[Rfam]
RNA sequence: GGCGAUAAACAGACGAUGAAAUAAGCCGUUCGGACCCGGGGGCGGUACCCGGCGCCUCCACCAAAAGCCGCAGCGAUGCUGCGAUUUCUGAUGGGGGCGAAAUAGGAUCGACGAAGGUGUAAAGAUCGUACUUUUGCCCGGCAUUGUACCACCGUUAUCGGGCUAAACUUGUAGUUGCAAACGACAACUAUGCGGAAGCACGUCUCGCAGCGUAA
Numbered sequence: 001g002g003c004g005a006u007a008a009a010c011a012g013a014c015g016a017u018g019a020a021a022u023a024a025g026c027c028g029u030u031c032g033g034a035c036c037c038g039g040g041g042g043c044g045g046u047a048c049c050c051g052g053c054g055c056c057u058c059c060a061c062c063a064a065a066a067g068c069c070g071c072a073g074c075g076a077u078g079c080u081g082c083g084a085u086u087u088c089u090g091a092u093g094g095g096g097g098c099g100a101a102a103u104a105g106g107a108u109c110g111a112c113g114a115a116g117g118u119g120u121a122a123a124g125a126u127c128g129u130a131c132u133u134u135u136g137c138c139c140g141g142c143a144u145u146g147u148a149c150c151a152c153c154g155u156u157a158u159c160g161g162g163c164u165a166a167a168c169u170u171g172u173a174g175u176u177g178c179a180a181a182c183g184a185c186a187a188c189u190a191u192g193c194g195g196a197a198g199c200a201c202g203u204c205u206c207g208c209a210g211c212g213u214a215a
Base pairs, nucleotide, nucleotide: 001138002137003136004135005134014128015127016126017125026117027116030114031113032112036052037051038050039049040048053099054098055097056096057095058094059093139154140153141152
RNA: permuted transfer-messenger RNA
Organism: Manganibacter manganicus